The family of this 304-nucleotide RNA from Apium graveolens is "Plant signal recognition particle RNA".
The family's RNA type in Rfam is non-coding RNA gene.
RNA sequence: UCUGGGUCUUGUAACGGGGGCCUAUAACUCAAGUGAGAGAUUUAAGAUGGUUGGAGAUUGGCAUGGUUCAGAAGGUCAGACUUUGUUGAGUAAUUCACAGGUGUGCCCAUUCCAAAUAUGGAGUUGUACCAUGUGUCUUGGGCGAAGGCCUGGAGCUCAUGGAGGCUUAAGCGGAAGGCACUGCGCUAGGCAGGCUCCACUGAGCAGCGAUCACUUCCCCCUCCUGUUGGUGGAAGGAUAACAUGCUUGUACUUGGCUAGUCCAUUAAGCACCUGAUGAGCCACUCAAACCAACAACCACCUUU
Numbered sequence: 001u002c003u004g005g006g007u008c009u010u011g012u013a014a015c016g017g018g019g020g021c022c023u024a025u026a027a028c029u030c031a032a033g034u035g036a037g038a039g040a041u042u043u044a045a046g047a048u049g050g051u052u053g054g055a056g057a058u059u060g061g062c063a064u065g066g067u068u069c070a071g072a073a074g075g076u077c078a079g080a081c082u083u084u085g086u087u088g089a090g091u092a093a094u095u096c097a098c099a100g101g102u103g104u105g106c107c108c109a110u111u112c113c114a115a116a117u118a119u120g121g122a123g124u125u126g127u128a129c130c131a132u133g134u135g136u137c138u139u140g141g142g143c144g145a146a147g148g149c150c151u152g153g154a155g156c157u158c159a160u161g162g163a164g165g166c167u168u169a170a171g172c173g174g175a176a177g178g179c180a181c182u183g184c185g186c187u188a189g190g191c192a193g194g195c196u197c198c199a200c201u202g203a204g205c206a207g208c209g210a211u212c213a214c215u216u217c218c219c220c221c222u223c224c225u226g227u228u229g230g231u232g233g234a235a236g237g238a239u240a241a242c243a244u245g246c247u248u249g250u251a252c253u254u255g256g257c258u259a260g261u262c263c264a265u266u267a268a269g270c271a272c273c274u275g276a277u278g279a280g281c282c283a284c285u286c287a288a289a290c291c292a293a294c295a296a297c298c299a300c301c302u303u304u
Stems, first nucleotide, its partner, number of pairs: 001040003004023007028037003044303003048299006056291001058288003061284001065281001068279003073274004079262004086255001088254003093250001098249008107237002110235005116228001120224004127164001129162005135156002138153006166171001173218005184209003191202003